The family of this 150-nucleotide RNA from Nonomuraea fuscirosea is "c-di-AMP riboswitch aptamer (ydaO/yuaA leader)". The match comes from Rfam's covariance-model search (91 bits).
RNA sequence: GUGAGAGACACGCCCAAUUCCCGCGAGGGAAGCCGGGGACCCGCCGGUGACGACCCCCAUCGUCACCACUGGGGUGAAUCCGAAUCGUUCGGUAGGGCUGCUCCGGCCCGAACCCGUCAGCUAACCCGGUAGGCGUCCAUGAGAGGAGCU
Numbered sequence: 001g002u003g004a005g006a007g008a009c010a011c012g013c014c015c016a017a018u019u020c021c022c023g024c025g026a027g028g029g030a031a032g033c034c035g036g037g038g039a040c041c042c043g044c045c046g047g048u049g050a051c052g053a054c055c056c057c058c059a060u061c062g063u064c065a066c067c068a069c070u071g072g073g074g075u076g077a078a079u080c081c082g083a084a085u086c087g088u089u090c091g092g093u094a095g096g097g098c099u100g101c102u103c104c105g106g107c108c109c110g111a112a113c114c115c116g117u118c119a120g121c122u123a124a125c126c127c128g129g130u131a132g133g134c135g136u137c138c139a140u141g142a143g144a145g146g147a148g149c150u
Stems, first nucleotide, its partner, number of pairs: 011135004018031005032130006042071002072115003080092004095109004